[Rfam]
RNA: Bacterial large subunit ribosomal RNA, nucleotides 9 to 556
RNA sequence: AAUGAAGGGCGUACGGGGGAUGCCUUGGCUCUCAGGGGCGACGAAGGACGUGAUAAGCUGCGAAAAGUCGCGGGGAGGUGCAAAUAACCGCUAAUCCGCGAAUAUCCGAAUGGGGCAACCCACCAUAAGUAAUUAUGGUAUCCUGUUAUGCAGGAAGCUAACCCGGGGAACUGAAACAUCUAAGUACCCGGAGGAAAAGAAAACAAAAGUGAUUCCCCAAGUAGUGGCGAUCGAACGGGGAACAGCCCAAACCGCAAGUGUUUCGGCACUUACGGGGUUGUAGGACUGCGCUAUAUGAAGUAAACGGAAAUGGAAGUGUCCUGGAAAGCCACACCAAAGGAGGUGAAAGUCCUGUACAUGUAAAGUUUGCGGAAUUAGCAGUAUCCUGAGUAGGGCGGGACACGAGAAAUCCUGUCUGAAACUGCCGGGACCAUCCGGUAAGGCUAAAUACUACUGAGAGACCGAUAGUGGACCAGUACCGUGAGGGAAAGGUGAAAAGCACCCCGGACAGGGGAGUGAAAAAGUACCUGAAACCGUACGCCUACAAG
Numbered sequence: 001a002a003u004g005a006a007g008g009g010c011g012u013a014c015g016g017g018g019g020a021u022g023c024c025u026u027g028g029c030u031c032u033c034a035g036g037g038g039c040g041a042c043g044a045a046g047g048a049c050g051u052g053a054u055a056a057g058c059u060g061c062g063a064a065a066a067g068u069c070g071c072g073g074g075g076a077g078g079u080g081c082a083a084a085u086a087a088c089c090g091c092u093a094a095u096c097c098g099c100g101a102a103u104a105u106c107c108g109a110a111u112g113g114g115g116c117a118a119c120c121c122a123c124c125a126u127a128a129g130u131a132a133u134u135a136u137g138g139u140a141u142c143c144u145g146u147u148a149u150g151c152a153g154g155a156a157g158c159u160a161a162c163c164c165g166g167g168g169a170a171c172u173g174a175a176a177c178a179u180c181u182a183a184g185u186a187c188c189c190g191g192a193g194g195a196a197a198a199g200a201a202a203a204c205a206a207a208a209g210u211g212a213u214u215c216c217c218c219a220a221g222u223a224g225u226g227g228c229g230a231u232c233g234a235a236c237g238g239g240g241a242a243c244a245g246c247c248c249a250a251a252c253c254g255c256a257a258g259u260g261u262u263u264c265g266g267c268a269c270u271u272a273c274g275g276g277g278u279u280g281u282a283g284g285a286c287u288g289c290g291c292u293a294u295a296u297g298a299a300g301u302a303a304a305c306g307g308a309a310a311u312g313g314a315a316g317u318g319u320c321c322u323g324g325a326a327a328g329c330c331a332c333a334c335c336a337a338a339g340g341a342g343g344u345g346a347a348a349g350u351c352c353u354g355u356a357c358a359u360g361u362a363a364a365g366u367u368u369g370c371g372g373a374a375u376u377a378g379c380a381g382u383a384u385c386c387u388g389a390g391u392a393g394g395g396c397g398g399g400a401c402a403c404g405a406g407a408a409a410u411c412c413u414g415u416c417u418g419a420a421a422c423u424g425c426c427g428g429g430a431c432c433a434u435c436c437g438g439u440a441a442g443g444c445u446a447a448a449u450a451c452u453a454c455u456g457a458g459a460g461a462c463c464g465a466u467a468g469u470g471g472a473c474c475a476g477u478a479c480c481g482u483g484a485g486g487g488a489a490a491g492g493u494g495a496a497a498a499g500c501a502c503c504c505c506g507g508a509c510a511g512g513g514g515a516g517u518g519a520a521a522a523a524g525u526a527c528c529u530g531a532a533a534c535c536g537u538a539c540g541c542c543u544a545c546a547a548g
Stems, first nucleotide, its partner, number of pairs: 007543010022528001023492002027463002029460007036452002038158002046107003049062003068101007077089003112121003122139007141155005162193001163191005173180002203210002213448001214241005224232001244445004252275003256271003282387003286381004296374001300370006310359003316332003321328001335339001341353003393417008424439005479486002502514004